Shown here is a 263-nucleotide RNA from Phaethon lepturus, a member of the family "Small Cajal body specific RNA 6". From the family's description: U88 is small Cajal body specific RNA (scaRNA). scaRNAs are a novel class of small nuclear RNAs which localise to the Cajal bodies. U88 is found associated with both fibrillarin and Gar1p and co-localises with coilin in Cajal bodies. It is annotated as a small Cajal body RNA. The source organism's lineage runs through Eukaryota, Teleostomi, Sauropsida, Sauria and Phaethon. The family has 17 seed sequences and 1,309 matches in Rfam 15.1.
RNA sequence: GGUCUGUGAUGAAUAGUAAAAGGUCUGAUUAUCCUAUGACUUGCACUUCCAUGACCUUUUCUCCCAGCAAUUUCUCACUGGUCAUGGCACAGUAAUGGUGUGGCUGGCAGAGUGUUUGCUGACAGCUUGUGAUGUGUUCAGUUCAUGUUAACCUGAAGUAUCGGAGACAUGACUGUGAUCAGCAUCCAACAGUCCUACUUGAAGGAGUUGGGGGUCUUGGAUUGUUACAACUGGACAUGUGAUCUGACUUUUCUGCUGAGACC
Numbered sequence: 001g002g003u004c005u006g007u008g009a010u011g012a013a014u015a016g017u018a019a020a021a022g023g024u025c026u027g028a029u030u031a032u033c034c035u036a037u038g039a040c041u042u043g044c045a046c047u048u049c050c051a052u053g054a055c056c057u058u059u060u061c062u063c064c065c066a067g068c069a070a071u072u073u074c075u076c077a078c079u080g081g082u083c084a085u086g087g088c089a090c091a092g093u094a095a096u097g098g099u100g101u102g103g104c105u106g107g108c109a110g111a112g113u114g115u116u117u118g119c120u121g122a123c124a125g126c127u128u129g130u131g132a133u134g135u136g137u138u139c140a141g142u143u144c145a146u147g148u149u150a151a152c153c154u155g156a157a158g159u160a161u162c163g164g165a166g167a168c169a170u171g172a173c174u175g176u177g178a179u180c181a182g183c184a185u186c187c188a189a190c191a192g193u194c195c196u197a198c199u200u201g202a203a204g205g206a207g208u209u210g211g212g213g214g215u216c217u218u219g220g221a222u223u224g225u226u227a228c229a230a231c232u233g234g235a236c237a238u239g240u241g242a243u244c245u246g247a248c249u250u251u252u253c254u255g256c257u258g259a260g261a262c263c
Base pairs, nucleotide, nucleotide: 001263002262003261004260035246036245038243040241048221049220050219051218053216054215061207062206063205064204065121066120067119068118069117070116078107079106080105081104082103083102084101085100086099129187131186132185133184134183135182144171145170146169147168148167149166152163
Dot-bracket structure: ((((..............................((.(.(.......((((.((......((((((((((.......(((((((((............)))))))))........)))))).......(.(((((........((((((..(..........)..))))))..........))))))................)))).......)).))))...................).).)).............))))